[Rfam]
RNA: Small nucleolar RNA SNORA79
RNA sequence: UGAUGGCUGCUUCUCUCACUGCUUAGAGCCUUAAGUAGUGGGAUUUUAGCUUGUCAUUUAUCUAGGCUAACUUAUUGUCACUCAGGGCAUCAUGGGGAUCUGGUGGCUAUCUGUUAGUGCCUUCUGAUUUUUGCAGAGUUAAACAAAA
Number, nucleotide and partner (000 for none) at each position: 001u056002g055003a054004u053005g052006g051007c000008u049009g000010c000011u000012u000013c000014u043015c042016u041017c040018a039019c000020u037021g036022c035023u034024u000025a000026g000027a000028g000029c000030c000031u000032u000033a000034a023035g022036u021037a020038g000039u018040g017041g016042g015043a014044u000045u000046u000047u000048a000049g008050c000051u006052u005053g004054u003055c002056a001057u000058u000059u000060a000061u000062c000063u000064a000065g000066g000067c000068u000069a140070a139071c138072u137073u136074a000075u000076u000077g000078u000079c000080a000081c000082u127083c126084a125085g124086g123087g120088c119089a118090u117091c000092a000093u000094g000095g000096g112097g111098a110099u109100c000101u000102g000103g000104u000105g000106g000107c000108u000109a099110u098111c097112u096113g000114u000115u000116a000117g090118u089119g088120c087121c000122u000123u086124c085125u084126g083127a082128u000129u000130u000131u000132u000133g000134c000135a000136g073137a072138g071139u070140u069141a000142a000143a000144c000145a000146a000147a000148a000